[Rfam]
Small nucleolar RNA ZL2: a 74-nucleotide RNA from Marmota monax. Taxonomically the source falls in Marmota (Eukaryota, Deuterostomia, Tetrapoda, Boreoeutheria). A search with the family's covariance model found it, with a score of 62 bits. The base pairs follow the family's consensus structure, which was predicted with RNAfold. By type it is a C/D-box small nucleolar RNA.

RNA sequence: GGCCUCAAGUGAUGGAGACACACUGUGGGAGAACCGUGACCGUACUGGGAUGUGUUCGUACUGUCUGAUGGGCU
Numbered sequence: 001g002g003c004c005u006c007a008a009g010u011g012a013u014g015g016a017g018a019c020a021c022a023c024u025g026u027g028g029g030a031g032a033a034c035c036g037u038g039a040c041c042g043u044a045c046u047g048g049g050a051u052g053u054g055u056u057c058g059u060a061c062u063g064u065c066u067g068a069u070g071g072g073c074u
Stems, first nucleotide, its partner, number of pairs: 002074001004072004011065005018059002020055004024049001027046002